Annotation:
Rfam assigns this 124-nucleotide sequence from Granulosicoccus antarcticus to the family "Glycine riboswitch aptamer". Rfam's curators write: This family represents the bacterial glycine riboswitch.
RNA sequence: AACGAGACAUCUGGAGAGUGAUGAGCCUGAGAUAUCGGGUGCAUCCACCGAAGGGGUAGUGUUCCGGAUCAGAAAAGCUGAUCAGGCGGCAUAAGCUCUCAGGUCCAAAGACAGAUGGGAUAAA
Numbered sequence: 001a002a003c004g005a006g007a008c009a010u011c012u013g014g015a016g017a018g019u020g021a022u023g024a025g026c027c028u029g030a031g032a033u034a035u036c037g038g039g040u041g042c043a044u045c046c047a048c049c050g051a052a053g054g055g056g057u058a059g060u061g062u063u064c065c066g067g068a069u070c071a072g073a074a075a076a077g078c079u080g081a082u083c084a085g086g087c088g089g090c091a092u093a094a095g096c097u098c099u100c101a102g103g104u105c106c107a108a109a110g111a112c113a114g115a116u117g118g119g120a121u122a123a124a
Base pairs, nucleotide, nucleotide: 008117009116010115011114012113013112020045021044022043023042047104048103049102050100051099054098055097056096060091061090062089063088